[Rfam]
RNA sequence: GGAUUAAUGAUGAGCUGUGUUUACUGAGCAUAAUGAAAUGACGCUCAAAAUAAUUACUCUGAAGUCU
Numbered sequence: 001g002g003a004u005u006a007a008u009g010a011u012g013a014g015c016u017g018u019g020u021u022u023a024c025u026g027a028g029c030a031u032a033a034u035g036a037a038a039u040g041a042c043g044c045u046c047a048a049a050a051u052a053a054u055u056a057c058u059c060u061g062a063a064g065u066c067u
Stems, first nucleotide, its partner, number of pairs: 001067005012059003020053002025047005
Background: The record is a 67-nucleotide RNA from Rattus norvegicus, which matches "Small Nucleolar RNA SNORD64" in Rfam. By type it is a C/D-box small nucleolar RNA. Rfam describes the family as follows. The human snoRNA HBII-13 belongs to the C/D family of snoRNAs. The base pairs follow the family's consensus structure, which was predicted with RNAalifold. On this family, see Runte et al., Hum Mol Genet 2001: "The IC-SNURF-SNRPN transcript serves as a host for multiple small nucleolar RNA species and as an antisense RNA for UBE3A". The sequence is in the family's curated seed alignment.